[Rfam]
RNA sequence: GUGUCCUGCCCCUACCAGUGCUAUUCCCUUCACCAGAGCUGUGGUGGGGAGGACCUGGGGGCGGACGCAGAUCAACCUGCCUCUCAGGUUAGGAGGGCUGCCCCCAAAAGAUGUGCAUGCCCUUAAAGGCACGAGAGAACAUU
Numbered sequence: 001g002u003g004u005c006c007u008g009c010c011c012c013u014a015c016c017a018g019u020g021c022u023a024u025u026c027c028c029u030u031c032a033c034c035a036g037a038g039c040u041g042u043g044g045u046g047g048g049g050a051g052g053a054c055c056u057g058g059g060g061g062c063g064g065a066c067g068c069a070g071a072u073c074a075a076c077c078u079g080c081c082u083c084u085c086a087g088g089u090u091a092g093g094a095g096g097g098c099u100g101c102c103c104c105c106a107a108a109a110g111a112u113g114u115g116c117a118u119g120c121c122c123u124u125a126a127a128g129g130c131a132c133g134a135g136a137g138a139a140c141a142u143u
Base pairs, nucleotide, nucleotide: 002067003066004065005064006063010060011059025053026052027051028049029048030047031046032045033044081137082136083135084134085133087130089128090127093124094123095122096121097120098119100116101115102113105110
Rfam assigns this 143-nucleotide RNA sequence from Terrapene triunguis to the family "Small Cajal body specific RNA 11". Pairs were carried over by alignment from the consensus structure, which was predicted with RNAalifold. The match comes from Rfam's covariance-model search (72 bits). NCBI's taxonomy places the organism under Eukaryota, Chordata, Amniota, Sauropsida, Terrapene. About the family: scaRNAs are a specific class of small nuclear RNAs which localise to the Cajal bodies and guide the modification of RNA polymerase II transcribed spliceosomal RNAs U1, U2, U4, U5 and U12. Its family is annotated with Cajal body, RNA processing and nucleolus in the Gene Ontology.